[Rfam]
RNA sequence: AUGACUAUAUCGGGAGAGACCUUGUUUAGGCGCCGAAGGAGAAAUUCCCCUGUUCGCAACGGGGGAGGAAGCUCUCAGGCAAAAGUACCGAUAUGAGACG
Numbered sequence: 001a002u003g004a005c006u007a008u009a010u011c012g013g014g015a016g017a018g019a020c021c022u023u024g025u026u027u028a029g030g031c032g033c034c035g036a037a038g039g040a041g042a043a044a045u046u047c048c049c050c051u052g053u054u055c056g057c058a059a060c061g062g063g064g065g066a067g068g069a070a071g072c073u074c075u076c077a078g079g080c081a082a083a084a085g086u087a088c089c090g091a092u093a094u095g096a097g098a099c100g
Stems, first nucleotide, its partner, number of pairs: 006095008020030003032080003035076002039074003045067010

Rfam assigns this 100-nucleotide RNA sequence from Desulfosporosinus cupriresistens to the family "Glycine riboswitch aptamer". The literature on the family includes a 2004 paper in Science by Mandal et al., "A glycine-dependent riboswitch that uses cooperative binding to control gene expression". A search with the family's covariance model found it, with a score of 67 bits. Taxonomically the source falls in Desulfosporosinus (Bacteria, Bacillati, Clostridia, Eubacteriales). This family represents the bacterial glycine riboswitch. Glycine riboswitches usually consist of two metabolite-binding aptamers domains with similar structures in tandem. The aptamers cooperatively bind glycine to regulate the expression of downstream genes.